[Rfam]
RNA sequence: AUGUACCACGCGUCCACUGUGGUUCUGAGCGCGCCAUCCGCGCCCACUUGAAGCUGCUCGCGACGUGUUGUUGGCC
Dot-bracket structure: .((.((.....)).))...((((.(.....).))))...........((((((..............)).))))..
This 76-nucleotide RNA from Xanthomonas oryzae belongs to the Rfam family "Xanthomonas sRNA sX9". On this family, see Schmidtke et al., Nucleic Acids Res 2011: "Genome-wide transcriptome analysis of the plant pathogen Xanthomonas identifies sRNAs with putative virulence functions". A search with the family's covariance model found it, with a score of 63 bits. The family's RNA type in Rfam is small RNA. The organism belongs to Xanthomonas oryzae pv. oryzae, within Bacteria. The family's consensus secondary structure was predicted with RNAalifold.